[Rfam]
RNA sequence: GACGACGUCUUACCUGACAAUAUUGGACAUAAAUACUAUCAUAUUUAAAUAGUUUUCCAACUCUAAUACUGUCAGGUAAUGAUGUCCGA
Numbered sequence: 001g002a003c004g005a006c007g008u009c010u011u012a013c014c015u016g017a018c019a020a021u022a023u024u025g026g027a028c029a030u031a032a033a034u035a036c037u038a039u040c041a042u043a044u045u046u047a048a049a050u051a052g053u054u055u056u057c058c059a060a061c062u063c064u065a066a067u068a069c070u071g072u073c074a075g076g077u078a079a080u081g082a083u084g085u086c087c088g089a
Base pairs, nucleotide, nucleotide: 004086005085006084007083008082009081010079011078012077013076014075015074016073017072018071019070021068022067023066024065025064026063027062
The family of this 89-nucleotide RNA from Macrostomum lignano is "mir-8/mir-141/mir-200 microRNA precursor family". Lineage of the source: Eukaryota > Metazoa > Protostomia > Macrostomorpha > Macrostomum. The family's consensus secondary structure was predicted with RNAalifold. Its family is annotated with RISC complex and miRNA-mediated post-transcriptional gene silencing in the Gene Ontology.